[Rfam]
RNA sequence: AUUUGGCUUAGUUAAGAGGCAUAUAAUGAAAUGUGGAUUCAAAAUAUCUUAAGGUAUUUUGGGUCUUUGAAGGCCUUUUGAGGGGACUCUUUGCACUCUGUAAAGUGUCCUCCAAGUAGCCUUAGACAUUC
Numbered sequence: 001a002u003u004u005g006g007c008u009u010a011g012u013u014a015a016g017a018g019g020c021a022u023a024u025a026a027u028g029a030a031a032u033g034u035g036g037a038u039u040c041a042a043a044a045u046a047u048c049u050u051a052a053g054g055u056a057u058u059u060u061g062g063g064u065c066u067u068u069g070a071a072g073g074c075c076u077u078u079u080g081a082g083g084g085g086a087c088u089c090u091u092u093g094c095a096c097u098c099u100g101u102a103a104a105g106u107g108u109c110c111u112c113c114a115a116g117u118a119g120c121c122u123u124a125g126a127c128a129u130u131c
Stems, first nucleotide, its partner, number of pairs: 004021002007018003036065005044057005068125001070123005077116004082112006089105002
Dot-bracket structure: ...((.(((......))).))..............(((((...(((((....)))))...)))))..(.(((((..((((.((((((.((.............)).))))))))))..))))).)......